[Rfam]
RNA sequence: GAUCGCAGUGAUGACUCAUGAAAUUCAAGCUCAACAGACUGGAAUGCAGGUUUCUCUCUCAAGAGAAGUUUGCGUGUCGACUGAUCUGCUAAACUGAGCGAUC
Number, nucleotide and partner (000 for none) at each position: 001g103002a102003u101004c100005g099006c098007a000008g000009u000010g000011a000012u000013g000014a000015c000016u000017c000018a000019u000020g000021a000022a000023a000024u000025u000026c000027a000028a000029g000030c000031u000032c000033a000034a000035c000036a000037g000038a000039c000040u000041g000042g000043a000044a000045u000046g000047c000048a000049g000050g000051u000052u000053u000054c000055u000056c000057u000058c000059u000060c000061a000062a000063g000064a000065g000066a000067a000068g000069u000070u000071u000072g000073c000074g000075u000076g000077u000078c000079g000080a000081c000082u000083g000084a000085u000086c000087u000088g000089c000090u000091a000092a000093a000094c000095u000096g000097a000098g006099c005100g004101a003102u002103c001